[Rfam]
RNA sequence: GUAGGAGAGGUUCAUAGCGACCCUCUAUAAAAAACUAUGGAAUA
Numbered sequence: 001g002u003a004g005g006a007g008a009g010g011u012u013c014a015u016a017g018c019g020a021c022c023c024u025c026u027a028u029a030a031a032a033a034a035c036u037a038u039g040g041a042a043u044a
Stems, first nucleotide, its partner, number of pairs: 006026005015037002
The family of this 44-nucleotide RNA from Savagea serpentis is "PreQ1 (pre queuosine) riboswitch aptamer". Rfam 15.1 lists 873 matches to the family in 692 species. On this family, see Reader et al., J Biol Chem 2004: "Identification of four genes necessary for biosynthesis of the modified nucleoside queuosine". This family is a bacterial riboswitch that binds to the metabolite preQ1, an intermediate in the biosynthesis of the modified nucleoside queuosine from GTP. One example of this riboswitch is located in the leader of the Bacillus subtilis ykvJKLM (queCDEF) operon which encodes four genes necessary for queuosine production. PreQ1 binding to the riboswitch aptamer is thought to induce premature transcription termination within the leader to down-regulate expression of these genes.